Rfam assigns this 94-nucleotide RNA from Thermotomaculum hydrothermale to the family "Selenocysteine transfer RNA". Clan: tRNA clan.

RNA sequence: GGAAGCGAAUGGGGGCUGGUGUCCCCCCCGGUCUUCAAAACCGGUGGGCCUAUACGGGGGUAUAGGUCGGUGGGUUCGAUUCCCACGCGCUUCC
Numbered sequence: 001g002g003a004a005g006c007g008a009a010u011g012g013g014g015g016c017u018g019g020u021g022u023c024c025c026c027c028c029c030g031g032u033c034u035u036c037a038a039a040a041c042c043g044g045u046g047g048g049c050c051u052a053u054a055c056g057g058g059g060g061u062a063u064a065g066g067u068c069g070g071u072g073g074g075u076u077c078g079a080u081u082c083c084c085a086c087g088c089g090c091u092u093c094c
Stems, first nucleotide, its partner, number of pairs: 001094007011026006028044005047068007071085004